Rfam assigns this 114-nucleotide RNA sequence from Portunus trituberculatus to the family "Potassium channel RNA editing signal".
The source organism's lineage runs through Eukaryota, Bilateria, Eubrachyura, Portunidae and Portunus.
A reference for the family is Bhalla et al. (2004), "Control of human potassium channel inactivation by editing of a small mRNA hairpin", Nat Struct Mol Biol.
Its family is annotated with adenosine to inosine editing in the Gene Ontology.
Rfam describes the family as follows. This family represents a group of sequences related to the human potassium channel Kv1.1 hairpin element which directs the efficient modification of an adenosine to inosine by an adenosine deaminase acting on RNA (ADAR). The ADAR modification causes an isoleucine/valine recoding event which lies in the ion-conducting pore of the potassium channel. It is thought that this editing event targets the process of fast inactivation and allows a more rapid recovery from inactivation at negative potentials.
By type it is a cis-regulatory element.
RNA sequence: GUGGGCUAUGGCGACAUGGCUCCCAAGACUUAUGUGGGCAUGUUUGUGGGUGCGCUCUGUGCCCUGGCUGGUGUAUUGACAAUUGCGCUCCCAGUGCCUGUCAUCGUGUCCAAC
Numbered sequence: 001g002u003g004g005g006c007u008a009u010g011g012c013g014a015c016a017u018g019g020c021u022c023c024c025a026a027g028a029c030u031u032a033u034g035u036g037g038g039c040a041u042g043u044u045u046g047u048g049g050g051u052g053c054g055c056u057c058u059g060u061g062c063c064c065u066g067g068c069u070g071g072u073g074u075a076u077u078g079a080c081a082a083u084u085g086c087g088c089u090c091c092c093a094g095u096g097c098c099u100g101u102c103a104u105c106g107u108g109u110c111c112a113a114c
Stems, first nucleotide, its partner, number of pairs: 001114002004111002007108005013102004018097001021094001037077002040074001049063003